[Rfam]
RNA sequence: UAUCGCUGCCCUUCUUGGGCGUUUCCUCCCUAAACUUCGGGCCGCUGGAGACAGCGGCCUUUUUUCUUGCCUGAA
Numbered sequence: 001u002a003u004c005g006c007u008g009c010c011c012u013u014c015u016u017g018g019g020c021g022u023u024u025c026c027u028c029c030c031u032a033a034a035c036u037u038c039g040g041g042c043c044g045c046u047g048g049a050g051a052c053a054g055c056g057g058c059c060u061u062u063u064u065u066c067u068u069g070c071c072u073g074a075a
Base pairs, nucleotide, nucleotide: 008020009019010018011017039060040059041058042057043056044055045054046053047052

This 75-nucleotide RNA from Microvirga subterranea belongs to the Rfam family "Makes More Granules Regulator RNA (mmgR)". Clan: suhB sRNA clan. It scores 72 bits against the family's covariance model. Taxonomically the source falls in Microvirga (Bacteria, Pseudomonadati, Pseudomonadota, Hyphomicrobiales).